This 78-nucleotide RNA from Schistosoma mansoni belongs to the Rfam family "mir-3492 microRNA precursor family". The match comes from Rfam's covariance-model search (45 bits). Rfam links the family to the GO terms RISC complex and miRNA-mediated post-transcriptional gene silencing. The family has 2 seed sequences and 21,496 matches in Rfam 15.1. Taxonomically the source falls in Schistosoma (Eukaryota, Metazoa, Lophotrochozoa, Digenea).
RNA sequence: AGCUUUUGAAUCCUUGCAGAGAUUUCGUCAGACACCAACCCCAAUAAAGCUGAUCAGACUUCCAAGAUAAGUGAAGUU
Numbered sequence: 001a002g003c004u005u006u007u008g009a010a011u012c013c014u015u016g017c018a019g020a021g022a023u024u025u026c027g028u029c030a031g032a033c034a035c036c037a038a039c040c041c042c043a044a045u046a047a048a049g050c051u052g053a054u055c056a057g058a059c060u061u062c063c064a065a066g067a068u069a070a071g072u073g074a075a076g077u078u
Stems, first nucleotide, its partner, number of pairs: 002077005007071001010068003015064002019061003023058003027054003